[Rfam]
RNA sequence: AAAAAGGGGGGCUUCUGUUACAAGUGCCACAGGUAGCGCAGUUUGUCCUUCCUGAGGAAUCGAUAUCAAGAAAUUUCAGAAGCGUAAUUUUUUUGUACUUAGGCAGCUUGUAGUCAUCGGUCCUGGUACCCCA
Number, nucleotide and partner (000 for none) at each position: 001a000002a000003a000004a000005a000006g000007g000008g000009g000010g000011g083012c082013u081014u080015c079016u029017g028018u000019u026020a025021c000022a000023a000024g000025u020026g019027c000028c017029a016030c054031a053032g052033g051034u000035a049036g048037c000038g046039c045040a044041g000042u000043u000044u040045g039046u038047c000048c036049u035050u000051c033052c032053u031054g030055a000056g077057g076058a075059a074060u073061c000062g000063a000064u000065a000066u000067c000068a000069a000070g000071a000072a000073a060074u059075u058076u057077c056078a000079g015080a014081a013082g012083c011084g000085u000086a000087a000088u000089u000090u000091u000092u000093u000094u000095g000096u000097a000098c000099u000100u000101a000102g130103g129104c000105a000106g127107c126108u125109u000110g123111u000112a000113g121114u120115c119116a000117u000118c000119g115120g114121u113122c000123c110124u000125g108126g107127u106128a000129c103130c102131c000132c000133a000
The family of this 133-nucleotide RNA sequence from Odocoileus virginianus is "U11 spliceosomal RNA". Pairs were carried over by alignment from the consensus structure, which is taken from published work. Clan: U1 clan.